About this RNA: The family of this 38-nucleotide sequence from Thermovirga lienii is "Selenocysteine insertion sequence 4". The family has 24 seed sequences and 436 matches in Rfam 15.1. Rfam links the family to the GO term selenocysteine incorporation.
RNA sequence: GGAACCUGCACGCGAUGCGGUGCAUCGAUGGCAAGAGA
Numbered sequence: 001g002g003a004a005c006c007u008g009c010a011c012g013c014g015a016u017g018c019g020g021u022g023c024a025u026c027g028a029u030g031g032c033a034a035g036a037g038a
Stems, first nucleotide, its partner, number of pairs: 005031002013027006